[Rfam]
RNA sequence: AAUUUUUGACCGGGGGCCACUUUAGAAAUUUUUGAAGUGGCCCCAGUCUGCCCCAUAAGGGGCAGGGCAUCAGGCG
Numbered sequence: 001a002a003u004u005u006u007u008g009a010c011c012g013g014g015g016g017c018c019a020c021u022u023u024a025g026a027a028a029u030u031u032u033u034g035a036a037g038u039g040g041c042c043c044c045a046g047u048c049u050g051c052c053c054c055a056u057a058a059g060g061g062g063c064a065g066g067g068c069a070u071c072a073g074g075c076g
Stems, first nucleotide, its partner, number of pairs: 013044006021076001023074001027070001028038003048065007

This 76-nucleotide RNA sequence from Pelodiscus sinensis belongs to the Rfam family "Mammalian CPEB3 ribozyme". The source organism's lineage runs through Eukaryota, Metazoa, Euteleostomi, Dipnotetrapodomorpha and Pelodiscus. Rfam links the family to the GO term RNA nuclease activity.